Shown here is an 81-nucleotide RNA sequence from Phascolarctos cinereus, a member of the family "mir-26 microRNA precursor family". The match comes from Rfam's covariance-model search (85 bits).
[Rfam]
RNA sequence: CCGUGACCUGGUUCAAGUAAUCCAGGAUAGGCUGGACCCAUUCUCAUCGGCCUAUUCUUGGUUACUUGCACUCGGGCACGG
Numbered sequence: 001c002c003g004u005g006a007c008c009u010g011g012u013u014c015a016a017g018u019a020a021u022c023c024a025g026g027a028u029a030g031g032c033u034g035g036a037c038c039c040a041u042u043c044u045c046a047u048c049g050g051c052c053u054a055u056u057c058u059u060g061g062u063u064a065c066u067u068g069c070a071c072u073c074g075g076g077c078a079c080g081g
Stems, first nucleotide, its partner, number of pairs: 002080004007075002010072003014068009024058010